[Rfam]
RNA sequence: CAGCAUGUUUUGGCCGUAGGCUAUUGUCGGCCUCUCGAUUUUCAUAGAGAGGUUGAGAAAAAACAUGCGAGAUUAACACUUAAGGAGUUAACAGGGCCACCAGUUUCUCAAGGUCAGACUGAGUUGGUAGUAUAAUACUCCAACAACC
Numbered sequence: 001c002a003g004c005a006u007g008u009u010u011u012g013g014c015c016g017u018a019g020g021c022u023a024u025u026g027u028c029g030g031c032c033u034c035u036c037g038a039u040u041u042u043c044a045u046a047g048a049g050a051g052g053u054u055g056a057g058a059a060a061a062a063a064c065a066u067g068c069g070a071g072a073u074u075a076a077c078a079c080u081u082a083a084g085g086a087g088u089u090a091a092c093a094g095g096g097c098c099a100c101c102a103g104u105u106u107c108u109c110a111a112g113g114u115c116a117g118a119c120u121g122a123g124u125u126g127g128u129a130g131u132a133u134a135a136u137a138c139u140c141c142a143a144c145a146a147c148c
Stems, first nucleotide, its partner, number of pairs: 003068006028055008084141004096128002100123001101121006
This 148-nucleotide RNA from Mola mola belongs to the Rfam family "Small nucleolar RNA U109". A reference for the family is Gu et al. (2005), "A novel experimental approach for systematic identification of box H/ACA snoRNAs from eukaryotes", Nucleic Acids Res. The base pairs follow the family's consensus structure, which was predicted with WAR. A search with the family's covariance model found it, with a score of 49 bits.